[Rfam]
RNA sequence: UCCCCACUGUGUUCUAUGGCUUUUUAUUCCUAUCUGAUGGUAAUGUGGAUUCAUAUAGGGAUGGAAGCCAUGCAACACGCUGGGUA
Numbered sequence: 001u002c003c004c005c006a007c008u009g010u011g012u013u014c015u016a017u018g019g020c021u022u023u024u025u026a027u028u029c030c031u032a033u034c035u036g037a038u039g040g041u042a043a044u045g046u047g048g049a050u051u052c053a054u055a056u057a058g059g060g061a062u063g064g065a066a067g068c069c070a071u072g073c074a075a076c077a078c079g080c081u082g083g084g085u086a
Stems, first nucleotide, its partner, number of pairs: 003084004008079006015072009026062008035053003
Dot-bracket structure: ..((((.((((((.(((((((((..((((((((.(((.............))).)))))))).))))))))).)))))).))))..
Source information: A member of the RNA family "mir-135 microRNA precursor family" from Acipenser ruthenus, 86 nucleotides long. On this family, see Lagos-Quintana et al., Curr Biol 2002: "Identification of tissue-specific microRNAs from mouse". A search with the family's covariance model found it, with a score of 74 bits.